RNA sequence: GGGACGGUAACUCAUUUAUGAGAACUGUACCCAGAUUAAAACUGUUAAAUAAAAUAAGUUUAGUCCACCUGGAUCGACGGACUGGGAUGGGAGG
Numbered sequence: 001g002g003g004a005c006g007g008u009a010a011c012u013c014a015u016u017u018a019u020g021a022g023a024a025c026u027g028u029a030c031c032c033a034g035a036u037u038a039a040a041a042c043u044g045u046u047a048a049a050u051a052a053a054a055u056a057a058g059u060u061u062a063g064u065c066c067a068c069c070u071g072g073a074u075c076g077a078c079g080g081a082c083u084g085g086g087a088u089g090g091g092a093g094g
Base pairs, nucleotide, nucleotide: 001032002031003030004028005027006026007025008024011022012021013020065090066089067088068086069085070084071083072082074081075080

The record is a 94-nucleotide sequence from Halanaerobium saccharolyticum, which matches "pan motif" in Rfam. The family's RNA type in Rfam is cis-regulatory element. Lineage of the source: Bacteria > Bacillati > Bacillota > Halanaerobiales > Halanaerobium saccharolyticum subsp. saccharolyticum.